[Rfam]
RNA sequence: AAAAUAGACAUCUAGGGUUCCGGCUGUGUCUGCAGUGUCUGGGUCGAGAGUUGUCAACCUCGCGAGAGGUCACACGGAGGGAUAGAAGCCCGGGAGAU
Numbered sequence: 001a002a003a004a005u006a007g008a009c010a011u012c013u014a015g016g017g018u019u020c021c022g023g024c025u026g027u028g029u030c031u032g033c034a035g036u037g038u039c040u041g042g043g044u045c046g047a048g049a050g051u052u053g054u055c056a057a058c059c060u061c062g063c064g065a066g067a068g069g070u071c072a073c074a075c076g077g078a079g080g081g082a083u084a085g086a087a088g089c090c091c092g093g094g095a096g097a098u
Stems, first nucleotide, its partner, number of pairs: 007055004012050001015045002020042002022039001023036005057070005073093001075096001079091003
RNA: Guanidine-I riboswitch aptamer
Organism: Vibrio astriarenae